A member of the RNA family "mir-17 microRNA precursor family" from Xenopus tropicalis, 79 nucleotides long. The base pairs follow the family's consensus structure, which was predicted with RNAalifold. NCBI's taxonomy places the organism under Eukaryota, Bilateria, Batrachia, Xenopus, Silurana. On this family, see Ambros, Cell 2001: "microRNAs: tiny regulators with great potential". The family has 234 seed sequences and 4,687 matches in Rfam 15.1. Rfam's curators write: This family represents the microRNA (miRNA) precursor mir-17, family, which includes mir-20, mir-91, and mir-103. miRNAs are transcribed as ~70nt precursors (modelled here) and subsequently processed by the Dicer enzyme to give a ~22nt product. In this case the mature sequence comes from the 3' arm of the precursor. The extents of the hairpin precursors are not generally known and are estimated based on hairpin prediction.
[Rfam]
RNA sequence: UAAAGUGGUGCUAAAGUGCUUAUAGUGCAGGUAGUUUUUCUGUAUUCUACUGCAUAAUGAGCACUUAAAGUACUCCUAG
Number, nucleotide and partner (000 for none) at each position: 001u000002a000003a000004a000005g076006u000007g074008g073009u000010g071011c070012u069013a000014a066015a065016g064017u063018g062019c061020u060021u059022a058023u057024a000025g055026u054027g053028c052029a000030g051031g050032u049033a048034g047035u000036u000037u000038u000039u000040c000041u000042g000043u000044a000045u000046u000047c034048u033049a032050c031051u030052g028053c027054a026055u025056a000057a023058u022059g021060a020061g019062c018063a017064c016065u015066u014067a000068a000069a012070g011071u010072a000073c008074u007075c000076c005077u000078a000079g000